[Rfam]
RNA sequence: UUCUACAUGUGCGCUAUGGCUUUUUAUUCCUAUGUGAUGAUGACAAGUGUUCACGUAAGAAUAGAAGCCAUUUUACACGUGGGGGG
Numbered sequence: 001u002u003c004u005a006c007a008u009g010u011g012c013g014c015u016a017u018g019g020c021u022u023u024u025u026a027u028u029c030c031u032a033u034g035u036g037a038u039g040a041u042g043a044c045a046a047g048u049g050u051u052c053a054c055g056u057a058a059g060a061a062u063a064g065a066a067g068c069c070a071u072u073u074u075a076c077a078c079g080u081g082g083g084g085g086g
Base pairs, nucleotide, nucleotide: 002085003084004083006081007080008079009078010077011076013074016071017070018069019068020067021066022065023064026062027061028060029059031057032056033055034054035053036052037051
Dot-bracket structure: .(((.((((((.(..((((((((..((((.(((((((.............))))))).)))).))))))))..).)))))).))).
The record is an 86-nucleotide sequence from Pleuronectes platessa, which matches "mir-135 microRNA precursor family" in Rfam. The source organism's lineage runs through Eukaryota, Deuterostomia, Euteleostomi, Euacanthomorphacea and Pleuronectes. The family's consensus secondary structure was predicted with PFOLD.